A member of the RNA family "Burkholderia RNA 7 (anti-hemB)" from Polaromonas sp., 91 nucleotides long.

[Rfam]
RNA sequence: UCCCGCUUUUCCUCCCUGAGCGGGGCCUUUGCGUGUGACAACAAAAAAGGCUUGCCGGCCCGGAUGACUUCAUGUCUCCGGGCUUUUUUUU
Numbered sequence: 001u002c003c004c005g006c007u008u009u010u011c012c013u014c015c016c017u018g019a020g021c022g023g024g025g026c027c028u029u030u031g032c033g034u035g036u037g038a039c040a041a042c043a044a045a046a047a048a049g050g051c052u053u054g055c056c057g058g059c060c061c062g063g064a065u066g067a068c069u070u071c072a073u074g075u076c077u078c079c080g081g082g083c084u085u086u087u088u089u090u091u
Base pairs, nucleotide, nucleotide: 002024003023004022005021006020007019025051026050027049028048029047030046058083059082060081061080062079063078064077
NCBI's taxonomy places the organism under Bacteria, Pseudomonadati, Burkholderiales, Comamonadaceae, Polaromonas. Rfam links the family to the GO terms protein binding and bacterial biofilm matrix. Rfam classes the family as a small RNA. Pairs were carried over by alignment from the consensus structure, which is taken from published work. Rfam describes the family as follows. This RNA motif was identified by computational search in b-proteobacteria Burkholderia.